A member of the RNA family "Bacterial large subunit ribosomal RNA" from Alteraurantiacibacter aestuarii, 230 nucleotides of a longer RNA. Gene Ontology terms of the family: ribosome and structural constituent of ribosome.
RNA sequence: GACUUAAUCUAACAUGCAAGCUUAAGCCGUUAGGUGUAGGCGCAGCGAAAGCGAGUCUGAAUAGGGCGAACAUAGUAUGUUGGAUUAGACCCGAAACCCGGCGAUCUAGGCAUGACCAGGUUGAAGGUGCAGUAACAUGCACUGGAGGACCGAACCGUUGUAUGUUGAAAAAUGCUCGGAUGAGUUGUGUUUAGGGGUGAAAGGCCAAUCAAGCCGGGAAAUAGCUGGUU
Numbered sequence: 001g002a003c004u005u006a007a008u009c010u011a012a013c014a015u016g017c018a019a020g021c022u023u024a025a026g027c028c029g030u031u032a033g034g035u036g037u038a039g040g041c042g043c044a045g046c047g048a049a050a051g052c053g054a055g056u057c058u059g060a061a062u063a064g065g066g067c068g069a070a071c072a073u074a075g076u077a078u079g080u081u082g083g084a085u086u087a088g089a090c091c092c093g094a095a096a097c098c099c100g101g102c103g104a105u106c107u108a109g110g111c112a113u114g115a116c117c118a119g120g121u122u123g124a125a126g127g128u129g130c131a132g133u134a135a136c137a138u139g140c141a142c143u144g145g146a147g148g149a150c151c152g153a154a155c156c157g158u159u160g161u162a163u164g165u166u167g168a169a170a171a172a173u174g175c176u177c178g179g180a181u182g183a184g185u186u187g188u189g190u191u192u193a194g195g196g197g198u199g200a201a202a203g204g205c206c207a208a209u210c211a212a213g214c215c216g217g218g219a220a221a222u223a224g225c226u227g228g229u230u
Stems, first nucleotide, its partner, number of pairs: 005087013020041004026035003045052002055067004090228002093225001097218006106194011117182001119151004126143006155179003160175004196206003
Dot-bracket structure: ....(((((((((((((..((((..(((....)))..))))...((....))..((((.....)))).......)))))))))))))..((.(...((((((...((((((((((((.((((...((((((......))))))....))))...(((..((((........)))).)))..).))))))))))).(((.....)))......))))))......).))..